[Rfam]
RNA sequence: AUACAAAAUACUCAAAAACAUAAAUGUUUUUUAAGGUAGUCGCACACAAACUUUGGUAGGGGCGUGGGCGACUUCUUUUUUUAUUUUGUU
Numbered sequence: 001a002u003a004c005a006a007a008a009u010a011c012u013c014a015a016a017a018a019c020a021u022a023a024a025u026g027u028u029u030u031u032u033a034a035g036g037u038a039g040u041c042g043c044a045c046a047c048a049a050a051c052u053u054u055g056g057u058a059g060g061g062g063c064g065u066g067g068g069c070g071a072c073u074u075c076u077u078u079u080u081u082u083a084u085u086u087u088g089u090u
Stems, first nucleotide, its partner, number of pairs: 005032003016029005039072005045066003